[Rfam]
RNA sequence: AAAAGGAGCAAUAACGCCCUCUUCAUAGAAGAAGAGGGGGAUUAUUGCUCCCUUUUUA
Numbered sequence: 001a002a003a004a005g006g007a008g009c010a011a012u013a014a015c016g017c018c019c020u021c022u023u024c025a026u027a028g029a030a031g032a033a034g035a036g037g038g039g040g041a042u043u044a045u046u047g048c049u050c051c052c053u054u055u056u057u058a
Stems, first nucleotide, its partner, number of pairs: 002054002005051010015040001019036006